[Rfam]
RNA sequence: AGAAUGCGCCUUUCAGGCAUCCUCUCCCAAAAAACUUCCAUAGGCUGGCCUUCGGGCCGGCCUUUUUUUGCCCUGC
Numbered sequence: 001a002g003a004a005u006g007c008g009c010c011u012u013u014c015a016g017g018c019a020u021c022c023u024c025u026c027c028c029a030a031a032a033a034a035c036u037u038c039c040a041u042a043g044g045c046u047g048g049c050c051u052u053c054g055g056g057c058c059g060g061c062c063u064u065u066u067u068u069u070g071c072c073c074u075g076c
Stems, first nucleotide, its partner, number of pairs: 008018004042063009
This 76-nucleotide sequence from Novosphingobium sp. BW1 belongs to the Rfam family "Makes More Granules Regulator RNA (mmgR)".
SuhB later renamed mmgR (makes more granules regulator) was a putative non-coding RNA found multiple times in the Agrobacterium tumefaciens genome and related alpha-proteobacteria. Other non-coding RNAs uncovered in the same analysis include: speF, ybhL, metA, and serC.Several studies inSinorhizobium meliloti showed that suhB element is indeed a non-coding RNA:firstly it was detected on Northern blot and called Sm8RNA, secondly in an RNAseq study referred to as SmelC689.The mutant phenotype's (strain lacking the small RNA) cytoplasm contains higher content of polyhydroxybutyrate (PBH)storage granules than wild type strain. The sRNA is required to limit the PBH intracellular accumulation when the nitrogen-fixing Sinorhizobium meliloti is under condition of surplus carbon in relation to nitrogen.
The pairing is the family consensus, mapped onto this sequence.
The family has 87 seed sequences and 1,791 matches in Rfam 15.1.
The organism belongs to Novosphingobium, within Bacteria.
It scores 42 bits against the family's covariance model.
Rfam classes the family as a small RNA.